The record is a 131-nucleotide sequence from Pantherophis guttatus, which matches "Small nucleolar RNA SNORA3/SNORA45 family" in Rfam. About the family: The members of this family belong to the H/ACA class of snoRNAs which are thought to guide the sites of modification of uridines to pseudouridines. This family includes mouse snoMBI-28 and human homologues ACA3 (SNORA3) and ACA3-2 (SNORA45). Both ACA3 and ACA3-2 share the same host gene. MBI-28, ACA3 and ACA3-2 are all predicted to guide the pseudouridylation of residues in 28S rRNA. Taxonomically the source falls in Pantherophis (Eukaryota, Bifurcata, Episquamata, Colubrinae). It scores 86 bits against the family's covariance model. Pairs were carried over by alignment from the consensus structure, which was predicted with RNAalifold. A reference for the family is Gu et al. (2005), "A novel experimental approach for systematic identification of box H/ACA snoRNAs from eukaryotes", Nucleic Acids Res.
[Rfam]
RNA sequence: GCUGAGACUAGAGUCACAUCUUGGUACUGCCAGUGAUCAUGGUGUGCUAUUGUACUCAGAGAGUAACAACUGACCUUUAUUCACUGACUGUCUCUUUCCCAACACAGUCAGCCACCAGGUUAGUAACAGAA
Numbered sequence: 001g002c003u004g005a006g007a008c009u010a011g012a013g014u015c016a017c018a019u020c021u022u023g024g025u026a027c028u029g030c031c032a033g034u035g036a037u038c039a040u041g042g043u044g045u046g047c048u049a050u051u052g053u054a055c056u057c058a059g060a061g062a063g064u065a066a067c068a069a070c071u072g073a074c075c076u077u078u079a080u081u082c083a084c085u086g087a088c089u090g091u092c093u094c095u096u097u098c099c100c101a102a103c104a105c106a107g108u109c110a111g112c113c114a115c116c117a118g119g120u121u122a123g124u125a126a127c128a129g130a131a
Stems, first nucleotide, its partner, number of pairs: 002059005007053002012048002015046006023038003070123007084111004089106003093102001